[Rfam]
RNA sequence: UCCAUGGUGACGUGGAAUCUGAAGGAAGUUGGAGACAAAACUCUGGUCCGACGAACAGAAACUACAUAGAAGGCAGGGGUUGAGGAUAAGACUGCAAAAGAAGUUGAAGUCCAAUAGUUACUGAACCAAUCAACCAAUGUAAAUGUGGCGGAUAGAUGGAGUGGAAGAGUUUGAG
Numbered sequence: 001u002c003c004a005u006g007g008u009g010a011c012g013u014g015g016a017a018u019c020u021g022a023a024g025g026a027a028g029u030u031g032g033a034g035a036c037a038a039a040a041c042u043c044u045g046g047u048c049c050g051a052c053g054a055a056c057a058g059a060a061a062c063u064a065c066a067u068a069g070a071a072g073g074c075a076g077g078g079g080u081u082g083a084g085g086a087u088a089a090g091a092c093u094g095c096a097a098a099a100g101a102a103g104u105u106g107a108a109g110u111c112c113a114a115u116a117g118u119u120a121c122u123g124a125a126c127c128a129a130u131c132a133a134c135c136a137a138u139g140u141a142a143a144u145g146u147g148g149c150g151g152a153u154a155g156a157u158g159g160a161g162u163g164g165a166a167g168a169g170u171u172u173g174a175g
Stems, first nucleotide, its partner, number of pairs: 001016006029174004036167001040162006046153005062148006073140003078135006084112004090105004

About this RNA:
Group II catalytic intron D1-D4-3: a 175-nucleotide RNA from Enterococcus rivorum. Taxonomically the source falls in Enterococcus (Bacteria, Bacillota, Lactobacillales, Enterococcaceae). Rfam describes the family as follows. Group II introns are found in rRNA, tRNA and mRNA of organelles in fungi, plants and protists, and also in mRNA in bacteria. Rfam links the family to the GO term Group II intron splicing.